RNA: R2 RNA element
Organism: Agrilus planipennis
Nucleotides: 199
Base pairs, nucleotide, nucleotide: 028063030062031061032060033059069198070197072195073194089193090192092190093189096186097185098184104141105140106139107138108137113133114132115131116130117129118128119127120126143169145168146167147166148165149164
Number, partner (000 for none) and nucleotide at each position: 001000a002000a003000g004000u005000a006000g007000a008000u009000a010000a011000g012000g013000a014000u015000a016000u017000u018000u019000u020000c021000c022000a023000u024000a025000a026000g027000c028063g029000u030062u031061c032060c033059u034000g035000c036000c037000g038000u039000a040000c041000u042000u043000u044000c045000c046000g047000a048000u049000u050000c051000g052000g053000c054000u055000g056000a057000a058000g059033a060032g061031g062030a063028c064000c065000c066000u067000a068000g069198u070197u071000g072195g073194u074000c075000c076000u077000a078000a079000a080000a081000c082000g083000g084000c085000c086000u087000g088000a089193g090192g091000u092190a093189g094000a095000a096186g097185g098184g099000u100000u101000u102000u103000a104141g105140u106139c107138g108137g109000u110000a111000g112000g113133u114132c115131c116130g117129a118128g119127g120126a121000c122000u123000u124000c125000u126120u127119c128118c129117u130116c131115g132114g133113g134000a135000a136000u137108c138107c139106g140105a141104c142000a143169c144000u145168a146167c147166c148165c149164a150000g151000u152000c153000g154000u155000a156000c157000g158000g159000a160000c161000g162000g163000c164149u165148g166147g167146g168145u169143g170000u171000c172000u173000u174000c175000u176000g177000a178000a179000c180000a181000u182000u183000u184098c185097c186096c187000c188000u189093c190092u191000u192090c193089c194073a195072c196000g197070a198069a199000a